[Rfam]
RNA: tRNA
Organism: Hymenoscyphus fraxineus
RNA sequence: GAGGGCGUGGCGCAGUGGUAGCGUAUCUGAUUCCAGCAACAAACAGUAGCCUAGUACUGUAGGUAUCCAGAUGGUCGCCCGUUCGAAUCGGGUCGUCCUCA
Dot-bracket structure: (((((((..((((.......)))).((((......................................)))).....(((((.......)))))))))))).
Numbered sequence: 001g002a003g004g005g006c007g008u009g010g011c012g013c014a015g016u017g018g019u020a021g022c023g024u025a026u027c028u029g030a031u032u033c034c035a036g037c038a039a040c041a042a043a044c045a046g047u048a049g050c051c052u053a054g055u056a057c058u059g060u061a062g063g064u065a066u067c068c069a070g071a072u073g074g075u076c077g078c079c080c081g082u083u084c085g086a087a088u089c090g091g092g093u094c095g096u097c098c099u100c101a
Stems, first nucleotide, its partner, number of pairs: 001100007010024004026071004077093005